Nucleotides: 104
Base pairs, nucleotide, nucleotide: 010040011039012038015035016034017033018032020030021029022028077097078096079095080094081093082092083091084089
Number, partner (000 for none) and nucleotide at each position: 001000c002000u003000u004000g005000c006000u007000u008000g009000g010040u011039g012038g013000c014000g015035c016034a017033c018032u019000u020030g021029g022028a023000c024000a025000a026000g027000u028022u029021c030020u031000u032018g033017g034016u035015g036000g037000g038012c039011u040010a041000a042000c043000g044000u045000g046000u047000a048000c049000u050000u051000c052000u053000a054000g055000u056000u057000u058000a059000g060000a061000a062000a063000a064000a065000c066000a067000a068000a069000c070000g071000u072000c073000a074000u075000a076000a077097a078096g079095c080094c081093c082092g083091c084089u085000a086000c087000u088000c089084a090000a091083g092082c093081g094080g095079g096078c097077u098000u099000u100000u101000u102000a103000u104000u
Rfam assigns this 104-nucleotide sequence from Vibrio parahaemolyticus to the family "Tryptophan operon leader". At least 6 amino acid operons are known to be regulated by attenuation. In each a leader sequence of 150-200 bp is found upstream of the first gene in the operon. This leader sequence can assume two different secondary structures known as the terminator and the anti-terminator structure. In each case the leader also codes for very short peptide sequence that is rich in the end product amino acid of the operon. By type it is a cis-regulatory leader. The source organism's lineage runs through Bacteria, Pseudomonadati, Pseudomonadota, Vibrionaceae and Vibrio.